[Rfam]
RNA sequence: GCGUUCGGGUAAUCGCUGCAAUAGUUCACUAUUGUAGAGGAAAGUCCAUGCUCACACAGGCUGAGAUGCCUGUAGUGUUCGUGCCUAGCGAAGUCAUAAGCUAGGGCAGCUUGCUUAAGCGCAGGCUGACGGCAGGGAAAAUACCUAAGUCAAUUGAUAUGGUAUGAAUACCUAUAAAAGUGCCACAGUGACGGAGCCUAUUCAGAAAUGAAUAGGGUGGAACGAGGUAAACCCCGCGAGUGAGAAACCCAAAUAAUGGUAGGGGCACUUUCCCUGAGGAAAUGAACAGAAGGGAAGGACAGACUGCGGUCUGUAGAUAGAUGAUUGCCACUUCGUACGAGACUUAUCGUCGUUCGCAGUACGUAGUACAAAACAUGGCUUACAGAA
Numbered sequence: 001g002c003g004u005u006c007g008g009g010u011a012a013u014c015g016c017u018g019c020a021a022u023a024g025u026u027c028a029c030u031a032u033u034g035u036a037g038a039g040g041a042a043a044g045u046c047c048a049u050g051c052u053c054a055c056a057c058a059g060g061c062u063g064a065g066a067u068g069c070c071u072g073u074a075g076u077g078u079u080c081g082u083g084c085c086u087a088g089c090g091a092a093g094u095c096a097u098a099a100g101c102u103a104g105g106g107c108a109g110c111u112u113g114c115u116u117a118a119g120c121g122c123a124g125g126c127u128g129a130c131g132g133c134a135g136g137g138a139a140a141a142u143a144c145c146u147a148a149g150u151c152a153a154u155u156g157a158u159a160u161g162g163u164a165u166g167a168a169u170a171c172c173u174a175u176a177a178a179a180g181u182g183c184c185a186c187a188g189u190g191a192c193g194g195a196g197c198c199u200a201u202u203c204a205g206a207a208a209u210g211a212a213u214a215g216g217g218u219g220g221a222a223c224g225a226g227g228u229a230a231a232c233c234c235c236g237c238g239a240g241u242g243a244g245a246a247a248c249c250c251a252a253a254u255a256a257u258g259g260u261a262g263g264g265g266c267a268c269u270u271u272c273c274c275u276g277a278g279g280a281a282a283u284g285a286a287c288a289g290a291a292g293g294g295a296a297g298g299a300c301a302g303a304c305u306g307c308g309g310u311c312u313g314u315a316g317a318u319a320g321a322u323g324a325u326u327g328c329c330a331c332u333u334c335g336u337a338c339g340a341g342a343c344u345u346a347u348c349g350u351c352g353u354u355c356g357c358a359g360u361a362c363g364u365a366g367u368a369c370a371a372a373a374c375a376u377g378g379c380u381u382a383c384a385g386a387a
Stems, first nucleotide, its partner, number of pairs: 004387003007383001008329007016037006042381003046378005051244005056073006079239005084105006106130001107128008131234002134173003142164004149158003180232002182228003197216008248264003268298007299314006331366002334363005